[Rfam]
RNA sequence: AAGCGACCAAUUCGAAGCGCCGGAACACGGGGUAGGAAUCCGGCCGCGUAGGACACGCGUAAGACGGAGUCAGACGCCCCCUGGAGUCGCACCGGGCCUGCCCAUAUUG
Numbered sequence: 001a002a003g004c005g006a007c008c009a010a011u012u013c014g015a016a017g018c019g020c021c022g023g024a025a026c027a028c029g030g031g032g033u034a035g036g037a038a039u040c041c042g043g044c045c046g047c048g049u050a051g052g053a054c055a056c057g058c059g060u061a062a063g064a065c066g067g068a069g070u071c072a073g074a075c076g077c078c079c080c081c082u083g084g085a086g087u088c089g090c091a092c093c094g095g096g097c098c099u100g101c102c103c104a105u106a107u108u109g
Stems, first nucleotide, its partner, number of pairs: 003090005020043004028035001046077004056066002094103003
This 109-nucleotide RNA from Mycobacterium intracellulare belongs to the Rfam family "Mycobacterium sRNA ncrMT1302". By type it is a small RNA. Pairs were carried over by alignment from the consensus structure, which was predicted with WAR. For this family Rfam cites "A screen for non-coding RNA in Mycobacterium tuberculosis reveals a cAMP-responsive RNA that is expressed during infection" (Pelly et al., Gene, 2012). Lineage of the source: Bacteria > Actinomycetota > Mycobacteriaceae > Mycobacterium > Mycobacterium intracellulare.